A member of the RNA family "transfer-messenger RNA" from Zhouia amylolytica, 401 nucleotides long.
RNA sequence: GGGGUCGACUGGUUUUGACAGCGAGUCGAAUUGAAAUGUAAGCAUGCCGAGCUAGAGUACUAAUGCUCGUUAAUAUCUGUGCUACACUUUUUAAAUGGCGAGAAUAACUACGCUCUUGCUGCCUAAUCUGAAUUUAUAGUAAGAUUAUCGGCCACGUCCCCGCAAGGCGGGGAGGCGAGAUGUCUCUUGAUAGCCCUUGUUGACGGCGAUCUAAUUAGAGACACCAUAAAAGUCAACAUAGAAGUUGUGUAGCUUCGUCACAAUUUCAAAUCUUAAGAAGCUAAGCGCAAGGUAGGCGGUUUUCGGUCAGCUUUGUGUCGACAAUUAAACGAAGACUAAGCAUGUAGAAAGCAUUUGAAUUGCUUGUUUGGACGGGAGUUCGAAUCUCCCCGACUCCACAA
Numbered sequence: 001g002g003g004g005u006c007g008a009c010u011g012g013u014u015u016u017g018a019c020a021g022c023g024a025g026u027c028g029a030a031u032u033g034a035a036a037u038g039u040a041a042g043c044a045u046g047c048c049g050a051g052c053u054a055g056a057g058u059a060c061u062a063a064u065g066c067u068c069g070u071u072a073a074u075a076u077c078u079g080u081g082c083u084a085c086a087c088u089u090u091u092u093a094a095a096u097g098g099c100g101a102g103a104a105u106a107a108c109u110a111c112g113c114u115c116u117u118g119c120u121g122c123c124u125a126a127u128c129u130g131a132a133u134u135u136a137u138a139g140u141a142a143g144a145u146u147a148u149c150g151g152c153c154a155c156g157u158c159c160c161c162g163c164a165a166g167g168c169g170g171g172g173a174g175g176c177g178a179g180a181u182g183u184c185u186c187u188u189g190a191u192a193g194c195c196c197u198u199g200u201u202g203a204c205g206g207c208g209a210u211c212u213a214a215u216u217a218g219a220g221a222c223a224c225c226a227u228a229a230a231a232g233u234c235a236a237c238a239u240a241g242a243a244g245u246u247g248u249g250u251a252g253c254u255u256c257g258u259c260a261c262a263a264u265u266u267c268a269a270a271u272c273u274u275a276a277g278a279a280g281c282u283a284a285g286c287g288c289a290a291g292g293u294a295g296g297c298g299g300u301u302u303u304c305g306g307u308c309a310g311c312u313u314u315g316u317g318u319c320g321a322c323a324a325u326u327a328a329a330c331g332a333a334g335a336c337u338a339a340g341c342a343u344g345u346a347g348a349a350a351g352c353a354u355u356u357g358a359a360u361u362g363c364u365u366g367u368u369u370g371g372a373c374g375g376g377a378g379u380u381c382g383a384a385u386c387u388c389c390c391c392g393a394c395u396c397c398a399c400a401a
Stems, first nucleotide, its partner, number of pairs: 001397007019370003024365002027362002031359002034356006043344005048069005057083001061079001181223006189211003193207002196205001199237006241267009251282006285318009295308003299336007374390005
About the family: Bacterial tmRNA, also known as 10Sa RNA or SsrA, is named for its dual tRNA and mRNA-like properties. Its role is to liberate the mRNA from a stalled ribosome. To accomplish this part of the tmRNA is used as a reading frame that ends in a translation stop signal. The broken mRNA is replaced in the ribosome by the tmRNA and translation of the tmRNA leads to addition of a proteolysis tag to the incomplete protein enabling recognition by a protease. Recently a number of permuted tmRNA genes have been found encoded in two parts. tmRNAs have been identified in eubacteria and some chloroplasts but are absent from archaeal and eukaryote nuclear genomes. Pairs were carried over by alignment from the consensus structure, which is taken from published work. Lineage of the source: Bacteria > Bacteroidota > Flavobacteriales > Zhouia > Zhouia amylolytica. It is annotated as a non-coding RNA gene.